[Rfam]
RNA sequence: ACCAGCAUAUGUUGUGUUUUGGUCACCAGCAUGAUCCACCAGCCAUGCUGCUGGAUUAUGCUGGUCCAUGCUGGUGGACCAUGCUGGUGACCAAAACACAACAUAUGCUGGUCC
Numbered sequence: 001a002c003c004a005g006c007a008u009a010u011g012u013u014g015u016g017u018u019u020u021g022g023u024c025a026c027c028a029g030c031a032u033g034a035u036c037c038a039c040c041a042g043c044c045a046u047g048c049u050g051c052u053g054g055a056u057u058a059u060g061c062u063g064g065u066c067c068a069u070g071c072u073g074g075u076g077g078a079c080c081a082u083g084c085u086g087g088u089g090a091c092c093a094a095a096a097c098a099c100a101a102c103a104u105a106u107g108c109u110g111g112u113c114c
Stems, first nucleotide, its partner, number of pairs: 001112002004109006011102020032058007062081008
RNA: MIR474 microRNA precursor family